This 108-nucleotide RNA sequence from Firmicutes bacterium CAG:102 belongs to the Rfam family "ZMP/ZTP riboswitch aptamer (pfl RNA motif)".
The organism belongs to Bacillota, within Bacteria.
The match comes from Rfam's covariance-model search (60 bits).
The literature on the family includes a 2015 paper in Nat Struct Mol Biol by Jones and Ferre-D'Amare, "Recognition of the bacterial alarmone ZMP through long-distance association of two RNA subdomains".

RNA sequence: GCGGUUUUUUGCAACUGACGGAACAGGUGGGCAACCACAGGGGAGCAAAGGACUUAAGAAAAUUAAGCAGUGCAGAACUGCUUUUUGUCGACCGUCUGGGCAGUCUGU
Numbered sequence: 001g002c003g004g005u006u007u008u009u010u011g012c013a014a015c016u017g018a019c020g021g022a023a024c025a026g027g028u029g030g031g032c033a034a035c036c037a038c039a040g041g042g043g044a045g046c047a048a049a050g051g052a053c054u055u056a057a058g059a060a061a062a063u064u065a066a067g068c069a070g071u072g073c074a075g076a077a078c079u080g081c082u083u084u085u086u087g088u089c090g091a092c093c094g095u096c097u098g099g100g101c102a103g104u105c106u107g108u
Base pairs, nucleotide, nucleotide: 003054004053005052006051007050008049009048010047011046012045015042016041017096018095019094020093021092027038028037029036030035085103086102087101088100089099